[Rfam]
RNA: DUF805 RNA
Organism: Flavobacterium cerinum
RNA sequence: CUAAAGUGGAAACAGAAACCACUCAAAAAAACGAGGCGUUUUCCGAAAAGCCUUACGAGUAGGAAAAAC
Dot-bracket structure: .....((((.........))))............(((....[[......))).........]]......